[Rfam]
RNA sequence: UGAGAAAAGCAGAAGUGAGAACUUCUCGCCUUGCGACUUAAAGUUGUCUGGCCCAACAUGUUAAAGUUCCUGUGGAAUAUUAUGUGUAUACGGGCUUGAUUUGUCAGGUCCGUUUUUGUUUUUCUCA
Numbered sequence: 001u002g003a004g005a006a007a008a009g010c011a012g013a014a015g016u017g018a019g020a021a022c023u024u025c026u027c028g029c030c031u032u033g034c035g036a037c038u039u040a041a042a043g044u045u046g047u048c049u050g051g052c053c054c055a056a057c058a059u060g061u062u063a064a065a066g067u068u069c070c071u072g073u074g075g076a077a078u079a080u081u082a083u084g085u086g087u088a089u090a091c092g093g094g095c096u097u098g099a100u101u102u103g104u105c106a107g108g109u110c111c112g113u114u115u116u117u118g119u120u121u122u123u124c125u126c127a
Stems, first nucleotide, its partner, number of pairs: 011026006028052003033047005090113009
RNA: Ribosomal protein L20 leader